Shown here is a 105-nucleotide RNA from Artemisia annua, a member of the family "Small nucleolar RNA Z152/R70/R12/". Pairs were carried over by alignment from the consensus structure, which was predicted with PFOLD. Its family is annotated with nucleolus and RNA processing in the Gene Ontology. The source organism's lineage runs through Eukaryota, Embryophyta, Magnoliopsida, Anthemideae and Artemisia.
[Rfam]
RNA sequence: AUAGCAAUGAUGAGGCAAAGCACUUGAGAGUGUAAAUGGGCAGUGGACAAGAUUUAAUCUUGCCGUGAUCCUUAUUUUUAACGACUUCUCCUUCCACUGAGCUUU
Numbered sequence: 001a002u003a004g005c006a007a008u009g010a011u012g013a014g015g016c017a018a019a020g021c022a023c024u025u026g027a028g029a030g031u032g033u034a035a036a037u038g039g040g041c042a043g044u045g046g047a048c049a050a051g052a053u054u055u056a057a058u059c060u061u062g063c064c065g066u067g068a069u070c071c072u073u074a075u076u077u078u079u080a081a082c083g084a085c086u087u088c089u090c091c092u093u094c095c096a097c098u099g100a101g102c103u104u105u
Base pairs, nucleotide, nucleotide: 001105003103004102005101